This 78-nucleotide RNA sequence from Thrips palmi belongs to the Rfam family "Small nucleolar RNA SNORD24".
The literature on the family includes a 1995 paper in Nucleic Acids Res by Qu et al., "U24, a novel intron-encoded small nucleolar RNA with two 12 nt long, phylogenetically conserved complementarities to 28S rRNA".
Its family is annotated with nucleolus and RNA processing in the Gene Ontology.
Taxonomically the source falls in Thrips (Eukaryota, Pterygota, Eumetabola, Terebrantia).
Rfam classes the family as a C/D-box small nucleolar RNA.
A search with the family's covariance model found it, with a score of 58 bits.
RNA sequence: CUGAAAUGAUGAUUGGAUUUAUUUGCUACUCUGAAUGGUUGUGGUGACACACAAUACCACCAAGAUCGCUGACAUCAG
Numbered sequence: 001c002u003g004a005a006a007u008g009a010u011g012a013u014u015g016g017a018u019u020u021a022u023u024u025g026c027u028a029c030u031c032u033g034a035a036u037g038g039u040u041g042u043g044g045u046g047a048c049a050c051a052c053a054a055u056a057c058c059a060c061c062a063a064g065a066u067c068g069c070u071g072a073c074a075u076c077a078g
Stems, first nucleotide, its partner, number of pairs: 001078004
Dot-bracket structure: ((((......................................................................))))